A member of the RNA family "Connexin-32 internal ribosome entry site (IRES)", 118 nucleotides long.
[Rfam]
RNA sequence: GCGGUGAUGAAUUGGGACGCAGGCGCGGAGCCCAGGGACCACUCCCCCUGCACAGACAUGAGACCAUAGGGGACCUGUCUGGGUGGCCUCAGGGAUAGGCGCUCCCCAAGGUGUGAAU
Dot-bracket structure: (..(((.....(((((.(((....)))...(((..((((...(((((.....................)))))...))))..).)).))))).......)))..).............
Rfam links the family to the GO term ribosome binding.